[Rfam]
RNA sequence: GCUGGCAACUGAUCAGAUAUUCUACACUCAACGGAAACUUCCAUGUGUGUACUAAUAAUCUCUGCUUAAUAUCUGAUGCCUUU
Number, nucleotide and partner (000 for none) at each position: 001g000002c000003u000004g080005g079006c078007a077008a000009c000010u000011g000012a000013u000014c000015a000016g000017a000018u000019a000020u000021u000022c000023u000024a000025c000026a000027c000028u000029c000030a000031a000032c000033g000034g000035a000036a000037a000038c000039u000040u000041c000042c000043a000044u000045g000046u000047g000048u000049g000050u000051a000052c000053u000054a000055a000056u000057a000058a000059u000060c000061u000062c000063u000064g000065c000066u000067u000068a000069a000070u000071a000072u000073c000074u000075g000076a000077u007078g006079c005080c004081u000082u000083u000
Notes:
This 83-nucleotide sequence from Aegilops tauschii belongs to the Rfam family "Small nucleolar RNA R16". On this family, see Galardi et al., Mol Cell Biol 2002: "Purified box C/D snoRNPs are able to reproduce site-specific 2'-O-methylation of target RNA in vitro". Rfam links the family to the GO terms RNA processing and nucleolus.